[Rfam]
RNA sequence: GGGUUUUUGUCUUUGGUUAUCUAGCUGUAUGAGUGUUGUGGAGCCAUCAUAAAGCUAGAUAACCGAAAGUAGAAAUGA
Number, nucleotide and partner (000 for none) at each position: 001g000002g000003g076004u075005u074006u000007u072008u071009g070010u069011c000012u067013u066014u065015g064016g063017u062018u061019a060020u059021c058022u057023a056024g055025c054026u053027g000028u051029a050030u049031g048032a047033g000034u000035g000036u000037u000038g000039u000040g000041g000042a000043g000044c000045c000046a000047u032048c031049a030050u029051a028052a000053a026054g025055c024056u023057a022058g021059a020060u019061a018062a017063c016064c015065g014066a013067a012068a000069g010070u009071a008072g007073a000074a005075a004076u003077g000078a000